This 125-nucleotide RNA from Trogon melanurus belongs to the Rfam family "Small nucleolar RNA SNORA65".
[Rfam]
RNA sequence: CCCGCCAUUGUGCCUGUGUGACACGGUGACCGGUACAGUCCAGAGGUGAGCUGACAGAAAACAUCAGCUUAGGAAACAGAGUUAUUCUUUUGUGGGUAACUUUGUGCCGAAGGCUGGGGACAGGC
Numbered sequence: 001c002c003c004g005c006c007a008u009u010g011u012g013c014c015u016g017u018g019u020g021a022c023a024c025g026g027u028g029a030c031c032g033g034u035a036c037a038g039u040c041c042a043g044a045g046g047u048g049a050g051c052u053g054a055c056a057g058a059a060a061a062c063a064u065c066a067g068c069u070u071a072g073g074a075a076a077c078a079g080a081g082u083u084a085u086u087c088u089u090u091u092g093u094g095g096g097u098a099a100c101u102u103u104g105u106g107c108c109g110a111a112g113g114c115u116g117g118g119g120a121c122a123g124g125c
Stems, first nucleotide, its partner, number of pairs: 005046002008043003019032002022028002062118001064116001066115005072108002077104006085096003
Clan: SNORA65 clan. From the family's description: U65 belongs to the H/ACA class of snoRNAs which are thought to guide the sites of modification of uridines to pseudouridines.